[Rfam]
RNA sequence: CCUCUAGGGGGAAGUGAAGACCCCGUGGAGCUUUACUGCAGCCUGUCGUUGGGUUGUGAUUUCGGAUGUACAGUGUAGGUAGGAGGCAUCGAAGCCCGUGCGCCAGCAUGGGUGGAGCCAACAAUGGGACACUACCCUUCUGAAGUCGCGACCCUAACUCCGAAAAGGAGGACCCCGAUAGGUGGGCAGUUUGCCUGGGGCGGGACGCCCUUGAAAAGAUAUCAAGGGCGCGCAAUGGUUGACUCAAGUGGGUCGGAAACCUGCUGAAGAGUGCAAGAGCAUAAGUCAGCCUGACGCGAUUUAGCAUAGCAAUGGAUCGCGAGACGAAAGUCGGUUCUAGCGAACCUUUAUGUCCUGCUUGAUGCGGGCUAAAGCUGACAGAAAAGUUACCCCGGGGAUAAUUGUGUCGUUGCCGGCAAGAGCACAUAUCGACCCGGCAGCUUGCUACCUCGAUGUCGGUUCUUUCCAUCCUGGCCGUGCAGCAGCGGCCAAGGGUGAGGUUGUUCGCCUAUUAAAGGAGAUCGUGAGCUGGGUUUAGACCGUCGUGAGACAGGUCGGUUACUAUCUACUAGAGGUGUAU
Numbered sequence: 001c002c003u004c005u006a007g008g009g010g011g012a013a014g015u016g017a018a019g020a021c022c023c024c025g026u027g028g029a030g031c032u033u034u035a036c037u038g039c040a041g042c043c044u045g046u047c048g049u050u051g052g053g054u055u056g057u058g059a060u061u062u063c064g065g066a067u068g069u070a071c072a073g074u075g076u077a078g079g080u081a082g083g084a085g086g087c088a089u090c091g092a093a094g095c096c097c098g099u100g101c102g103c104c105a106g107c108a109u110g111g112g113u114g115g116a117g118c119c120a121a122c123a124a125u126g127g128g129a130c131a132c133u134a135c136c137c138u139u140c141u142g143a144a145g146u147c148g149c150g151a152c153c154c155u156a157a158c159u160c161c162g163a164a165a166a167g168g169a170g171g172a173c174c175c176c177g178a179u180a181g182g183u184g185g186g187c188a189g190u191u192u193g194c195c196u197g198g199g200g201c202g203g204g205a206c207g208c209c210c211u212u213g214a215a216a217a218g219a220u221a222u223c224a225a226g227g228g229c230g231c232g233c234a235a236u237g238g239u240u241g242a243c244u245c246a247a248g249u250g251g252g253u254c255g256g257a258a259a260c261c262u263g264c265u266g267a268a269g270a271g272u273g274c275a276a277g278a279g280c281a282u283a284a285g286u287c288a289g290c291c292u293g294a295c296g297c298g299a300u301u302u303a304g305c306a307u308a309g310c311a312a313u314g315g316a317u318c319g320c321g322a323g324a325c326g327a328a329a330g331u332c333g334g335u336u337c338u339a340g341c342g343a344a345c346c347u348u349u350a351u352g353u354c355c356u357g358c359u360u361g362a363u364g365c366g367g368g369c370u371a372a373a374g375c376u377g378a379c380a381g382a383a384a385a386g387u388u389a390c391c392c393c394g395g396g397g398a399u400a401a402u403u404g405u406g407u408c409g410u411u412g413c414c415g416g417c418a419a420g421a422g423c424a425c426a427u428a429u430c431g432a433c434c435c436g437g438c439a440g441c442u443u444g445c446u447a448c449c450u451c452g453a454u455g456u457c458g459g460u461u462c463u464u465u466c467c468a469u470c471c472u473g474g475c476c477g478u479g480c481a482g483c484a485g486c487g488g489c490c491a492a493g494g495g496u497g498a499g500g501u502u503g504u505u506c507g508c509c510u511a512u513u514a515a516a517g518g519a520g521a522u523c524g525u526g527a528g529c530u531g532g533g534u535u536u537a538g539a540c541c542g543u544c545g546u547g548a549g550a551c552a553g554g555u556c557g558g559u560u561a562c563u564a565u566c567u568a569c570u571a572g573a574g575g576u577g578u579a580u
Stems, first nucleotide, its partner, number of pairs: 001575007010567003014562002022396004027392002029388005035190004042182007051154016068137001078136005085119003097110005158170004193206001194204003207229006232335002238290006244270002247265006271280002295321009323332001325330001346374005352369001354368004406445002409443001410440007420430002457532001458530004462524001463521005470495002474489005498510004538556004542551003
The record is a 580-nucleotide part of an RNA from Methanohalophilus mahii, which matches "Archaeal large subunit ribosomal RNA" in Rfam. NCBI's taxonomy places the organism under Archaea, Methanobacteriati, Methanosarcinaceae, Methanohalophilus, Methanohalophilus mahii. The literature on the family includes a 2002 paper in BMC Bioinformatics by Cannone et al., "The comparative RNA web (CRW) site: an online database of comparative sequence and structure information for ribosomal, intron, and other RNAs". Rfam's curators put it in the seed alignment. The family has 91 seed sequences and 2,955 matches in Rfam 15.1.